[Rfam]
RNA sequence: AGAGGUCACAAGUUUGAGGCCAUAACAGAAGUACUCAUGGCAGGGCUCUGUCAGAUUCCAAUGAAUCUGUGAUUCUGCU
Numbered sequence: 001a002g003a004g005g006u007c008a009c010a011a012g013u014u015u016g017a018g019g020c021c022a023u024a025a026c027a028g029a030a031g032u033a034c035u036c037a038u039g040g041c042a043g044g045g046c047u048c049u050g051u052c053a054g055a056u057u058c059c060a061a062u063g064a065a066u067c068u069g070u071g072a073u074u075c076u077g078c079u
Stems, first nucleotide, its partner, number of pairs: 016048003020045002024079001026077005032042001052069007

The record is a 79-nucleotide RNA from Alligator sinensis, which matches "Mammalian CPEB3 ribozyme" in Rfam. Rfam describes the family as follows. The mammalian CPEB3 ribozyme is a self cleaving RNA located in the second intron of the CPEB3 gene which belongs to a family of genes regulating messenger RNA polyadenylation. The family's consensus secondary structure is taken from published work.